[Rfam]
RNA sequence: CAAGAAAAACGGCUUGUUGAUUCCCGAUUCGUUGGGGGUAGGAAAGUCCGGACACCAUAGAGCAGCAAAGCGGAUAACAUCCGUCGGUCGCGAGAUCAGGACAAGUGCAACAGAAAGUAUGUAUAUUAAUUUAUAGUGAAACCAGGUAAACUCUUUGCGGUGCAAUGUUAAGUAUAUCGGAUUUUUUCAGCAAUGAAAAUAGGAGCGGCUCGCUCCAAAAACCGAGGGGUAAACAGCAAAAGUUUUGCAGCAAUGUAAAGCGCAGAUAAAUAACAGGCAUUUUGACUUCGGUCAAUGUACAGAAUCCGGCUUAUAGUUUUUCUUGUGGG
Number, nucleotide and partner (000 for none) at each position: 001c325002a324003a323004g322005a321006a320007a319008a318009a317010c316011g314012g278013c277014u276015u275016g274017u273018u272019g000020a039021u038022u037023c036024c035025c034026g033027a032028u000029u000030c000031g000032u027033u026034g025035g024036g023037g022038g021039u020040a000041g000042g000043a000044a312045a311046g310047u000048c309049c308050g307051g306052a305053c162054a161055c160056c159057a000058u000059a000060g211061a210062g209063c208064a000065g158066c157067a156068a155069a154070g084071c083072g082073g081074a080075u000076a000077a000078c000079a000080u074081c073082c072083g071084u070085c099086g097087g096088u095089c094090g000091c000092g000093a000094g089095a088096u087097c086098a000099g085100g153101a152102c000103a000104a000105g151106u150107g147108c146109a000110a000111c000112a000113g000114a000115a000116a000117g000118u000119a000120u000121g000122u135123a134124u000125a132126u000127u000128a000129a000130u000131u000132u125133a000134u123135a122136g000137u000138g000139a000140a000141a000142c000143c000144a000145g000146g108147u107148a000149a000150a106151c105152u101153c100154u069155u068156u067157g066158c065159g056160g055161u054162g053163c000164a000165a000166u235167g234168u233169u232170a000171a000172g000173u000174a000175u000176a000177u225178c224179g223180g222181a000182u000183u000184u000185u000186u000187u000188c000189a000190g000191c000192a000193a000194u000195g000196a000197a000198a000199a000200u000201a000202g216203g215204a214205g213206c212207g000208g063209c062210u061211c060212g206213c205214u204215c203216c202217a000218a000219a000220a000221a000222c180223c179224g178225a177226g000227g000228g000229g000230u000231a000232a169233a168234c167235a166236g000237c000238a000239a000240a000241a000242g261243u260244u259245u258246u257247g256248c255249a254250g000251c000252a000253a000254u249255g248256u247257a246258a245259a244260g243261c242262g000263c000264a000265g000266a000267u000268a000269a000270a000271u000272a018273a017274c016275a015276g014277g013278c012279a000280u000281u000282u000283u000284g000285a000286c000287u000288u000289c000290g000291g000292u000293c000294a000295a000296u000297g000298u000299a000300c000301a000302g000303a000304a000305u052306c051307c050308g049309g048310c046311u045312u044313a000314u011315a000316g010317u009318u008319u007320u006321u005322c004323u003324u002325g001326u000327g000328g000329g000
Bacterial RNase P class A: a 329-nucleotide RNA from Chryseobacterium salivictor. Rfam classes the family as a ribozyme. The family's consensus secondary structure is taken from published work. Taxonomically the source falls in Chryseobacterium (Bacteria, Pseudomonadati, Bacteroidota, Flavobacteriia).